Shown here is a 117-nucleotide RNA sequence from Candidatus Ishikawella capsulata, a member of the family "Ribosomal S15 leader". A search with the family's covariance model found it, with a score of 45 bits. Taxonomically the source falls in Candidatus Ishikawella capsulata (Bacteria, Pseudomonadati, Enterobacterales, Candidatus Ishikawella). A reference for the family is Benard et al. (1996), "Pseudoknot and translational control in the expression of the S15 ribosomal protein", Biochimie. The E. coli Ribosomal S15 gene 5' UTR can form two alternative structures. Its family is annotated with regulation of translation, ncRNA-mediated in the Gene Ontology.
RNA sequence: AAAAAUUGCUGAAUUAUAGAUCAGCAACAUAUAUUGAUUCAUAACAGGAGUAGACUAUUUAUGUCUCUUAUUUUGAAAAAUAAAUCAGAUAUUAUUAUUAAAUACGGUAGAAAUGCU
Dot-bracket structure: ......((((((........)))))).................(.(((((..............))))).)..............................................
Numbered sequence: 001a002a003a004a005a006u007u008g009c010u011g012a013a014u015u016a017u018a019g020a021u022c023a024g025c026a027a028c029a030u031a032u033a034u035u036g037a038u039u040c041a042u043a044a045c046a047g048g049a050g051u052a053g054a055c056u057a058u059u060u061a062u063g064u065c066u067c068u069u070a071u072u073u074u075g076a077a078a079a080a081u082a083a084a085u086c087a088g089a090u091a092u093u094a095u096u097a098u099u100a101a102a103u104a105c106g107g108u109a110g111a112a113a114u115g116c117u
Stems, first nucleotide, its partner, number of pairs: 007026006044071001046069005